[Rfam]
RNA: Molybdenum/Tungsten riboswitch aptamer (Moco RNA motif)
Organism: Thermobrachium celere
RNA sequence: UAAUUAGUUCAGCUUCGAGCUGUAUAUCCUAAGGCUUAUGCUAAGGAGUACAGCCGAUAGGGUAUAUUUGGAAACAAAUAUACCUCCCAUUUAGGAAAGGAGCUGAUCUUGUGAAAAG
Numbered sequence: 001u002a003a004u005u006a007g008u009u010c011a012g013c014u015u016c017g018a019g020c021u022g023u024a025u026a027u028c029c030u031a032a033g034g035c036u037u038a039u040g041c042u043a044a045g046g047a048g049u050a051c052a053g054c055c056g057a058u059a060g061g062g063u064a065u066a067u068u069u070g071g072a073a074a075c076a077a078a079u080a081u082a083c084c085u086c087c088c089a090u091u092u093a094g095g096a097a098a099g100g101a102g103c104u105g106a107u108c109u110u111g112u113g114a115a116a117a118g
Base pairs, nucleotide, nucleotide: 003112004111006109011104012103013102014101015100016099019054020053021052022051023050024049025048027047028046029045033042034041035040060085061084062083063082064081065080066079067078068077069076070075086095087094